[Rfam]
RNA sequence: CUCUUAUUCCGAGCUGGUGGAGGGGACAGGCCCUAAGAAACCCGGCAACCUGCUGCAUUUGUAGCGUUGGUGCCAAACCUGAACAAGGUGAACAAGCCUUGGAUGAUAAGAG
Numbered sequence: 001c002u003c004u005u006a007u008u009c010c011g012a013g014c015u016g017g018u019g020g021a022g023g024g025g026a027c028a029g030g031c032c033c034u035a036a037g038a039a040a041c042c043c044g045g046c047a048a049c050c051u052g053c054u055g056c057a058u059u060u061g062u063a064g065c066g067u068u069g070g071u072g073c074c075a076a077a078c079c080u081g082a083a084c085a086a087g088g089u090g091a092a093c094a095a096g097c098c099u100u101g102g103a104u105g106a107u108a109a110g111a112g
Stems, first nucleotide, its partner, number of pairs: 001112008013043001016042003022033003030079001044074004049070002051066004084101006
SAM riboswitch aptamer (S box leader): a 112-nucleotide sequence from Planococcus sp. PAMC 21323. The SAM riboswitch is found upstream of a number of genes which code for proteins involved in methionine or cysteine biosynthesis in Gram-positive bacteria. The SAM riboswitch acts at the level of transcription termination control. The predicted structure consists of a complex stem-loop region followed by a single stem loop terminator region. An alternative and mutually exclusive form involves bases in the 3' segment of helix 1 with those in the 5' region of helix 5 to form a structure termed the anti-terminator form. Pairs were carried over by alignment from the consensus structure, which is taken from published work. Gene Ontology term of the family: regulation of gene expression.